[Rfam]
RNA sequence: AUAUAUUUUCGGGGCAAGGCGAAAUUCCUUACCGAUAGUUAAAGUCUAUGAGCCUUUGGGCACGAUUUGGUGAAAUUCCAAAACCGACGGUACAGUCCGGAUGAGAGAAAAUAUAC
Numbered sequence: 001a002u003a004u005a006u007u008u009u010c011g012g013g014g015c016a017a018g019g020c021g022a023a024a025u026u027c028c029u030u031a032c033c034g035a036u037a038g039u040u041a042a043a044g045u046c047u048a049u050g051a052g053c054c055u056u057u058g059g060g061c062a063c064g065a066u067u068u069g070g071u072g073a074a075a076u077u078c079c080a081a082a083a084c085c086g087a088c089g090g091u092a093c094a095g096u097c098c099g100g101a102u103g104a105g106a107g108a109a110a111a112u113a114u115a116c
Stems, first nucleotide, its partner, number of pairs: 003114008017029003031096002033086002035049004044084002054060001066082005088099003
RNA: FMN riboswitch aptamer (RFN element)